The family of this 164-nucleotide RNA sequence from Rousettus aegyptiacus is "U1 spliceosomal RNA". U1 is a small nuclear RNA (snRNA) component of the spliceosome (involved in pre-mRNA splicing). Its 5' end forms complementary base pairs with the 5' splice junction, thus defining the 5' donor site of an intron. There are significant differences in sequence and secondary structure between metazoan and yeast U1 snRNAs, the latter being much longer (568 nucleotides as compared to 164 nucleotides in human).

[Rfam]
RNA sequence: UUAUUUACCUGGCGGGGGAAAUACCACAUUCAUGAAGGUGAUUUUCCCAGGGUGAGGCUCAUCCAUUGCAUUCUAGGUGAGCUGACCUCUGCAAUUUCCCCAAAUUUGGAAAACUUGAUUGCAUAAUUUGUGGCCCUGGUGGACUACAUUCAUGCUAUCCUUUG
Numbered sequence: 001u002u003a004u005u006u007a008c009c010u011g012g013c014g015g016g017g018g019a020a021a022u023a024c025c026a027c028a029u030u031c032a033u034g035a036a037g038g039u040g041a042u043u044u045u046c047c048c049a050g051g052g053u054g055a056g057g058c059u060c061a062u063c064c065a066u067u068g069c070a071u072u073c074u075a076g077g078u079g080a081g082c083u084g085a086c087c088u089c090u091g092c093a094a095u096u097u098c099c100c101c102a103a104a105u106u107u108g109g110a111a112a113a114c115u116u117g118a119u120u121g122c123a124u125a126a127u128u129u130g131u132g133g134c135c136c137u138g139g140u141g142g143a144c145u146a147c148a149u150u151c152a153u154g155c156u157a158u159c160c161u162u163u164g
Stems, first nucleotide, its partner, number of pairs: 012122004016048006023042001025040003049090004054086001056083003060079004092117003095113001096111002099109002138163002141160003147154002
A search with the family's covariance model found it, with a score of 114 bits. The base pairs follow the family's consensus structure, which is taken from published work. The literature on the family includes a 1994 paper in Nature by Oubridge et al., "Crystal structure at 1.92 A resolution of the RNA-binding domain of the U1A spliceosomal protein complexed with an RNA hairpin".